[Rfam]
RNA sequence: GAAAUGACAAUGAUGAGGAUUAGUAAUGAAGUGAUACAAGUAAAAAGAGAGAUAACGGUUGGUGAAAGUUAUCCUUGUACUUUAUGAACUCGCCUUUAAUGUUGCAGUGAUGAAUCAAAGUAGUUACUGCCGUACUCUGCGUUAAAGAAGCAAAGUGGAUGCCUUAUGGAUGUAAGGUAUUAAUCAUGGGUGGUACCGCGGGAAAUAAGCUCUCGUCCUAGUU
Dot-bracket structure: ......((......((((.......((((((......(((..........((((((...........)))))))))...))))))........))))...))..(((((((...........))))))).(((.....)))................(((((((((......))))))))).....((((.......(((((.........)))))))))...
Numbered sequence: 001g002a003a004a005u006g007a008c009a010a011u012g013a014u015g016a017g018g019a020u021u022a023g024u025a026a027u028g029a030a031g032u033g034a035u036a037c038a039a040g041u042a043a044a045a046a047g048a049g050a051g052a053u054a055a056c057g058g059u060u061g062g063u064g065a066a067a068g069u070u071a072u073c074c075u076u077g078u079a080c081u082u083u084a085u086g087a088a089c090u091c092g093c094c095u096u097u098a099a100u101g102u103u104g105c106a107g108u109g110a111u112g113a114a115u116c117a118a119a120g121u122a123g124u125u126a127c128u129g130c131c132g133u134a135c136u137c138u139g140c141g142u143u144a145a146a147g148a149a150g151c152a153a154a155g156u157g158g159a160u161g162c163c164u165u166a167u168g169g170a171u172g173u174a175a176g177g178u179a180u181u182a183a184u185c186a187u188g189g190g191u192g193g194u195a196c197c198g199c200g201g202g203a204a205a206u207a208a209g210c211u212c213u214c215g216u217c218c219u220a221g222u223u
Stems, first nucleotide, its partner, number of pairs: 007102002015097004026085006038076003051073006105129007131141003158181009187220004198216005